RNA: Small nucleolar SNORD12/SNORD106
Nucleotides: 090
Stems, first nucleotide, its partner, number of pairs: 001090001003088007
Number, partner (000 for none) and nucleotide at each position: 001090a002000u003088u004087g005086g006085u007084g008083u009082a010000a011000a012000g013000g014000a015000u016000g017000a018000c019000u020000a021000a022000u023000c024000u025000u026000u027000u028000u029000u030000c031000c032000c033000c034000a035000g036000c037000a038000g039000a040000u041000c042000g043000a044000c045000c046000c047000u048000g049000u050000u051000g052000a053000c054000u055000g056000c057000g058000c059000u060000a061000u062000a063000u064000u065000u066000a067000a068000g069000c070000c071000a072000a073000c074000a075000u076000u077000u078000c079000u080000g081000a082009u083008g084007c085006a086005c087004c088003a089000u090001u